[Rfam]
RNA sequence: UUGAAGCUAGUUGGAGAGUGGCGAAUUAACGUUACACCGACGAAGUAAAUCUUUCAGGUGCGCAAAAGCGUAAGGACUGCUAGUGGACG
Numbered sequence: 001u002u003g004a005a006g007c008u009a010g011u012u013g014g015a016g017a018g019u020g021g022c023g024a025a026u027u028a029a030c031g032u033u034a035c036a037c038c039g040a041c042g043a044a045g046u047a048a049a050u051c052u053u054u055c056a057g058g059u060g061c062g063c064a065a066a067a068g069c070g071u072a073a074g075g076a077c078u079g080c081u082a083g084u085g086g087a088c089g
Stems, first nucleotide, its partner, number of pairs: 006084006013077001019034004036059003039055002043053003